The record is a 154-nucleotide RNA from Aureimonas altamirensis, which matches "Alphaproteobacterial sRNA ar9" in Rfam.
RNA sequence: CCAAUACCAAGGCACCGGAGACGGUGUCGCAUUCGCGGUCUAGUCUUGGGAGGACGUGAUCUCCGGCGCGCUAAUGCCGCUGCCCCGGUUUCAAGACCCGGUGUGAGAUCCAGACCUGCAACUAAAAUGCGAGGCGAAAGCCUCGCAUUUUUUU
Numbered sequence: 001c002c003a004a005u006a007c008c009a010a011g012g013c014a015c016c017g018g019a020g021a022c023g024g025u026g027u028c029g030c031a032u033u034c035g036c037g038g039u040c041u042a043g044u045c046u047u048g049g050g051a052g053g054a055c056g057u058g059a060u061c062u063c064c065g066g067c068g069c070g071c072u073a074a075u076g077c078c079g080c081u082g083c084c085c086c087g088g089u090u091u092c093a094a095g096a097c098c099c100g101g102u103g104u105g106a107g108a109u110c111c112a113g114a115c116c117u118g119c120a121a122c123u124a125a126a127a128u129g130c131g132a133g134g135c136g137a138a139a140g141c142c143u144c145g146c147a148u149u150u151u152u153u154u
Base pairs, nucleotide, nucleotide: 003154004153006151011028012027013026014025015024016023034118035117037115043055044054045053046052058110059109060108061107062106065084066083067082068080069079070078085101086100087099128147129146130145131144132143133142134141135140
The match comes from Rfam's covariance-model search (75 bits). Rfam classes the family as a small RNA.